[Rfam]
RNA sequence: UUUUGAGAUAGAGGAGCAAAACUCAUCAGUAAACCACUGAGCGGCAGCUAGGAAGUGGUCAAAAGGGGUGUUUUGCCGAAGUUGGCUAGGCGUGGCGACGUCUACCUCCUGGGUAUAAGUCAUAAUAGGCUUGUAACUGUCACGAUUGUGAUGUGCUAUCCGAAAA
Number, nucleotide and partner (000 for none) at each position: 001u000002u000003u000004u000005g000006a000007g160008a159009u158010a157011g156012a000013g000014g000015a000016g076017c075018a074019a073020a072021a071022c070023u000024c068025a000026u000027c000028a000029g000030u000031a000032a000033a059034c058035c057036a056037c055038u054039g000040a000041g000042c000043g000044g000045c000046a000047g000048c000049u000050a000051g000052g000053a000054a038055g037056u036057g035058g034059u033060c000061a000062a000063a000064a000065g000066g000067g000068g024069u000070g022071u021072u020073u019074u018075g017076c016077c000078g000079a000080a110081g109082u000083u000084g106085g105086c000087u104088a103089g102090g101091c100092g099093u000094g000095g000096c000097g000098a000099c092100g091101u090102c089103u088104a087105c085106c084107u000108c000109c081110u080111g138112g137113g000114u135115a134116u133117a132118a131119g130120u129121c128122a000123u000124a000125a000126u000127a000128g121129g120130c119131u118132u117133g116134u115135a114136a000137c112138u111139g000140u151141c150142a149143c148144g000145a000146u000147u000148g143149u142150g141151a140152u000153g000154u000155g000156c011157u010158a009159u008160c007161c000162g000163a000164a000165a000166a000